[Rfam]
RNA sequence: UUACAAAAACCUGACAAAGCUAGGGAAGUGACAGAGCGUGGAUGAGGCUAUCAACAAAAAAAAUGAGAGAAUGAGAGAAUAAAUUUGUUGUGGCUUUAUUCAUGCAAUGCCUCUUCCCUGGCUAAGUCUCCUUCCUUGUCU
Numbered sequence: 001u002u003a004c005a006a007a008a009a010c011c012u013g014a015c016a017a018a019g020c021u022a023g024g025g026a027a028g029u030g031a032c033a034g035a036g037c038g039u040g041g042a043u044g045a046g047g048c049u050a051u052c053a054a055c056a057a058a059a060a061a062a063a064u065g066a067g068a069g070a071a072u073g074a075g076a077g078a079a080u081a082a083a084u085u086u087g088u089u090g091u092g093g094c095u096u097u098a099u100u101c102a103u104g105c106a107a108u109g110c111c112u113c114u115u116c117c118c119u120g121g122c123u124a125a126g127u128c129u130c131c132u133u134c135c136u137u138g139u140c141u
Stems, first nucleotide, its partner, number of pairs: 018123002021120007030111001032109002036105006045096007

The family of this 141-nucleotide RNA sequence from Lupinus angustifolius is "MIR408 microRNA precursor family".